[Rfam]
Nucleotides: 448
Base pairs, nucleotide, nucleotide: 004187005186006185007184008183009182010181011180016175019173020172021171022170052101053100054099055098062096063095064094065093066092067091068090069089070088079166080165081164082163084161085159086158087157191359192358193357194356195355196354197353219341220340221339222338224336225335226334227333228325230323232321233320234319237314238313239312241310252285253284254283255282256281258280259279260278261277263273264272265271287299288298289297290296371440372439373438374437377436378435379434380433381432382431399428400427401426402425403424406421407420408419409418
Number, partner (000 for none) and nucleotide at each position: 001000c002000g003000u004187g005186c006185c007184g008183g009182g010181g011180u012000g013000g014000g015000c016175a017000g018000g019173c020172c021171c022170u023000g024000c025000g026000g027000g028000c029000g030000g031000u032000u033000a034000a035000c036000c037000c038000u039000a040000a041000u042000g043000g044000c045000g046000g047000c048000c049000g050000c051000g052101c053100c054099c055098u056000c057000a058000c059000u060000c061000c062096c063095g064094c065093c066092c067091g068090c069089u070088g071000u072000u073000u074000u075000a076000c077000u078000c079166g080165c081164u082163g083000a084161c085159u086158u087157u088070c089069a090068g091067c092066g093065g094064g095063c096062g097000a098055a099054g100053g101052g102000a103000g104000c105000g106000g107000c108000c109000c110000a111000g112000g113000g114000a115000a116000a117000g118000g119000g120000g121000a122000u123000g124000g125000g126000g127000u128000a129000g130000g131000g132000g133000g134000a135000g136000g137000a138000a139000a140000a141000g142000a143000g144000u145000u146000c147000c148000g149000g150000c151000c152000u153000c154000a155000a156000a157087a158086a159085a160000a161084g162000c163082c164081a165080g166079c167000g168000a169000g170022g171021g172020g173019g174000a175016u176000c177000a178000a179000c180011a181010c182009c183008c184007c185006g186005g187004c188000c189000c190000a191359c192358u193357g194356g195355g196354g197353u198000c199000u200000c201000u202000g203000u204000c205000c206000c207000u208000u209000c210000c211000c212000c213000g214000c215000a216000a217000c218000c219341g220340g221339g222338g223000a224336u225335g226334c227333u228325c229000c230323c231000g232321c233320c234319c235000u236000c237314g238313c239312c240000c241310c242000u243000c244000a245000u246000g247000g248000a249000g250000g251000c252285c253284g254283c255282g256281g257000u258280c259279g260278g261277c262000g263273g264272g265271c266000u267000c268000a269000g270000c271265g272264c273263c274000g275000c276000u277261g278260c279259c280258g281256c282255c283254g284253c285252g286000a287299a288298g289297a290296g291000u292000u293000c294000g295000u296290c297289u298288c299287u300000g301000u302000c303000a304000g305000c306000c307000u308000c309000g310241g311000u312239g313238g314237c315000g316000g317000c318000c319234g320233g321232g322000a323230g324000c325228g326000g327000a328000g329000g330000g331000c332000c333227g334226g335225c336224g337000c338222c339221c340220c341219c342000a343000g344000c345000c346000u347000g348000g349000g350000g351000g352000g353197a354196c355195c356194c357193c358192a359191g360000c361000a362000g363000a364000g365000c366000a367000a368000a369000a370000c371440g372439g373438g374437c375000g376000c377436g378435g379434c380433g381432c382431c383000g384000c385000u386000g387000g388000g389000c390000g391000c392000u393000g394000a395000g396000c397000a398000g399428c400427c401426g402425c403424g404000g405000c406421c407420c408419c409418c410000u411000g412000a413000g414000c415000c416000g417000u418409g419408g420407g421406g422000u423000g424403c425402g426401c427400g428399g429000u430000g431382g432381g433380c434379g435378c436377c437374g438373c439372c440371c441000c442000g443000a444000c445000a446000c447000c448000c

Shown here is a 448-nucleotide sequence from Dicaeum eximium, a member of the family "Vertebrate telomerase RNA". It scores 142 bits against the family's covariance model. NCBI's taxonomy places the organism under Eukaryota, Sauria, Coelurosauria, Passeroidea, Dicaeum. By type it is a non-coding RNA gene. Rfam's curators write: Telomerase is a ribonucleoprotein reverse transcriptase that synthesises telomeric DNA. Telomerase RNAs differ greatly in sequence and structure between vertebrates, ciliates and yeasts, but they share a 5' pseudoknot structure close to the template sequence. Vertebrate telomerase RNAs have a 3' H/ACA snoRNA-like domain.